[Rfam]
RNA sequence: AUGACGUGUAACAUGCCCGUUGUGGGAUUACUCUGAUGUUUAUAUGCUAUUUUACUGUUUUUGGGUAACGGGGUGUUACAACUCA
Numbered sequence: 001a002u003g004a005c006g007u008g009u010a011a012c013a014u015g016c017c018c019g020u021u022g023u024g025g026g027a028u029u030a031c032u033c034u035g036a037u038g039u040u041u042a043u044a045u046g047c048u049a050u051u052u053u054a055c056u057g058u059u060u061u062u063g064g065g066u067a068a069c070g071g072g073g074u075g076u077u078a079c080a081a082c083u084c085a
Stems, first nucleotide, its partner, number of pairs: 002085003007080008016072006
Rfam assigns this 85-nucleotide RNA from Medicago truncatula to the family "MIR2617 microRNA precursor family". The family's consensus secondary structure was predicted with RNAalifold. Rfam links the family to the GO terms miRNA-mediated post-transcriptional gene silencing and RISC complex. NCBI's taxonomy places the organism under Eukaryota, Streptophytina, Embryophyta, fabids, Medicago.